[Rfam]
RNA sequence: AGCAAAAACAUAAUUGAGUGCAGCGUUGACGAAUCUCCGUUGGAUCGGAGAUUAAUCAACGCUGCACUCAAUGAUGUUUUGA
Numbered sequence: 001a002g003c004a005a006a007a008a009c010a011u012a013a014u015u016g017a018g019u020g021c022a023g024c025g026u027u028g029a030c031g032a033a034u035c036u037c038c039g040u041u042g043g044a045u046c047g048g049a050g051a052u053u054a055a056u057c058a059a060c061g062c063u064g065c066a067c068u069c070a071a072u073g074a075u076g077u078u079u080u081g082a
Base pairs, nucleotide, nucleotide: 006079007078008077009076010075011074013072014071015070016069017068018067019066020065021064022063023062024061025060026059027058028057032053033052034051035050036049037048038047

This 82-nucleotide sequence from Centaurea solstitialis belongs to the Rfam family "MIR397 microRNA precursor family". The match comes from Rfam's covariance-model search (57 bits). NCBI's taxonomy places the organism under Eukaryota, Embryophyta, asterids, campanulids, Centaurea.